[Rfam]
The record is a 78-nucleotide RNA from Collichthys lucidus, which matches "mir-17 microRNA precursor family" in Rfam.
Pairs were carried over by alignment from the consensus structure, which was predicted with RNAalifold.
The match comes from Rfam's covariance-model search (75 bits).
RNA sequence: ACUGUAGUGUCAAAGUGCUUACAGUGCAGGUAGUUUUUAUAAAAUCUACUGCAGUGGAGGCACUUUCAGCAUUACUCU
Numbered sequence: 001a002c003u004g005u006a007g008u009g010u011c012a013a014a015g016u017g018c019u020u021a022c023a024g025u026g027c028a029g030g031u032a033g034u035u036u037u038u039a040u041a042a043a044a045u046c047u048a049c050u051g052c053a054g055u056g057g058a059g060g061c062a063c064u065u066u067c068a069g070c071a072u073u074a075c076u077c078u
Stems, first nucleotide, its partner, number of pairs: 004075004009070002013065008022056002025053003029050005
From the family's description: This family represents the microRNA (miRNA) precursor mir-17, family, which includes mir-20, mir-91, and mir-103. miRNAs are transcribed as ~70nt precursors (modelled here) and subsequently processed by the Dicer enzyme to give a ~22nt product. Rfam 15.1 lists 4,687 matches to the family in 648 species.